Shown here is a 515-nucleotide part of an RNA from Candidatus Micrarchaeum sp. AZ1, a member of the family "Archaeal small subunit ribosomal RNA". Rfam links the family to the GO terms structural constituent of ribosome and ribosome.

[Rfam]
RNA sequence: AUUCCAGUCGAUGCUGCUGGAGGGCACUGCUAUCAGAUUUCGACAGCCAUGCAAGUUCGCUCAGCGGCUUCGCUGGGCAGCGUACGGCUCAGUAACACGUAGUCAAUCUACCGUAAAGAGGCGAAUACCCAUGGGAAACUGUGGCUAAUGCGCCAUAGGCCAGGGAUUCUGGAAGGAGCCCUGACUUAAAGGAGCGCGAAUUGCAGCGCUUCCGCUUUACGAUGAGACUGCGGCGGAUCAGGCAGAUGGCGGGGUAACGGCCCACCAUACCUAUAACCCGUAGGGGAUGUGGGAGCAUAAGCCCCGAGAAGGGCACUGAGACAAGGGCCCUAGCACUACGGUGUGCAGCAGGCGCGCAAACUCCACAAUGCGCGUAAGCGUGAUGGGGGGAAUCUGAGUGGUUCACUUUGUGAACCUUUUGCCAAGUAUAGCAAGCUUGGCGAAUAAGUGCUGGGCAAGACCGGUGGCAGCCGCCACGGUAAUACCGGCAGCACAAGUGGUGUCCACGAUUAUUG
Numbered sequence: 001a002u003u004c005c006a007g008u009c010g011a012u013g014c015u016g017c018u019g020g021a022g023g024g025c026a027c028u029g030c031u032a033u034c035a036g037a038u039u040u041c042g043a044c045a046g047c048c049a050u051g052c053a054a055g056u057u058c059g060c061u062c063a064g065c066g067g068c069u070u071c072g073c074u075g076g077g078c079a080g081c082g083u084a085c086g087g088c089u090c091a092g093u094a095a096c097a098c099g100u101a102g103u104c105a106a107u108c109u110a111c112c113g114u115a116a117a118g119a120g121g122c123g124a125a126u127a128c129c130c131a132u133g134g135g136a137a138a139c140u141g142u143g144g145c146u147a148a149u150g151c152g153c154c155a156u157a158g159g160c161c162a163g164g165g166a167u168u169c170u171g172g173a174a175g176g177a178g179c180c181c182u183g184a185c186u187u188a189a190a191g192g193a194g195c196g197c198g199a200a201u202u203g204c205a206g207c208g209c210u211u212c213c214g215c216u217u218u219a220c221g222a223u224g225a226g227a228c229u230g231c232g233g234c235g236g237a238u239c240a241g242g243c244a245g246a247u248g249g250c251g252g253g254g255u256a257a258c259g260g261c262c263c264a265c266c267a268u269a270c271c272u273a274u275a276a277c278c279c280g281u282a283g284g285g286g287a288u289g290u291g292g293g294a295g296c297a298u299a300a301g302c303c304c305c306g307a308g309a310a311g312g313g314c315a316c317u318g319a320g321a322c323a324a325g326g327g328c329c330c331u332a333g334c335a336c337u338a339c340g341g342u343g344u345g346c347a348g349c350a351g352g353c354g355c356g357c358a359a360a361c362u363c364c365a366c367a368a369u370g371c372g373c374g375u376a377a378g379c380g381u382g383a384u385g386g387g388g389g390g391a392a393u394c395u396g397a398g399u400g401g402u403u404c405a406c407u408u409u410g411u412g413a414a415c416c417u418u419u420u421g422c423c424a425a426g427u428a429u430a431g432c433a434a435g436c437u438u439g440g441c442g443a444a445u446a447a448g449u450g451c452u453g454g455g456c457a458a459g460a461c462c463g464g465u466g467g468c469a470g471c472c473g474c475c476a477c478g479g480u481a482a483u484a485c486c487g488g489c490a491g492c493a494c495a496a497g498u499g500g501u502g503u504c505c506a507c508g509a510u511u512a513u514u515g
Base pairs, nucleotide, nucleotide: 004020005019006018007017008016022505023504024503025502026501027500028499029498030497031496033397034396035395036394037393038392039391040390041389042355046353047352048351050350051349052348055081056080057079059078060077061076062075063074064073065072088308089307090306098232099231100230101229102228103227104226107225108224112221113220114219115218116217117216118215120154121153122152123151129144130143131142132141133140134139159185161183162182163181164180165179168177169176191213192212193211194210234280235279236278241271242270246268247267248266249265251263252262253261283305284304285303286302287298288297289296290295310331311330312329313328314327333344334343335342336341361387363386364385365384369382370381371380372379373378400416401415402414403413404412405411406410421441422440423439424438425437426436427435448494449493450492451491452490453489461488462487463486464485470477

Rfam 15.1 lists 709 matches to the family in 491 species. NCBI's taxonomy places the organism under Archaea, Microcaldota, Candidatus Micrarchaeia, Candidatus Micrarchaeaceae, Candidatus Micrarchaeum.